[Rfam]
RNA sequence: UAACAGUACAGGUAGAGAUAGACUGUUAACACAUAGUCCGUGAUUAUAGCAAUUAAGCGUAUCUUAAGUACGUCACCUAUGUGGAGGUACCUUAUCGGUGCCUUUUUUUAUGAA
Numbered sequence: 001u002a003a004c005a006g007u008a009c010a011g012g013u014a015g016a017g018a019u020a021g022a023c024u025g026u027u028a029a030c031a032c033a034u035a036g037u038c039c040g041u042g043a044u045u046a047u048a049g050c051a052a053u054u055a056a057g058c059g060u061a062u063c064u065u066a067a068g069u070a071c072g073u074c075a076c077c078u079a080u081g082u083g084g085a086g087g088u089a090c091c092u093u094a095u096c097g098g099u100g101c102c103u104u105u106u107u108u109u110a111u112g113a114a
Stems, first nucleotide, its partner, number of pairs: 008026004013020002030083006040076003043053003057073006084104008
Rfam assigns this 114-nucleotide RNA sequence from Granulicatella balaenopterae to the family "DUF3800-I RNA".
The family's consensus secondary structure is taken from published work.
From the family's description: Actinobacteria, Firmicutes, Fusobacteria, Proteobacteria (1 example), Tenericutes (2 examples).
It scores 75 bits against the family's covariance model.